[Rfam]
RNA sequence: UUUGGUGAAAACAAUGUGAGACCUACACUUUGGAAAUGGAACUCACAUAAAGUGGUGGGACAUACAUUGAUUUCAUCAAA
Dot-bracket structure: ((((((((((.(((((((....((((((((((...............))))))).)))....))))))).))))))))))
This 80-nucleotide RNA sequence from Medicago truncatula belongs to the Rfam family "MIR5269 microRNA precursor family". The match comes from Rfam's covariance-model search (87 bits).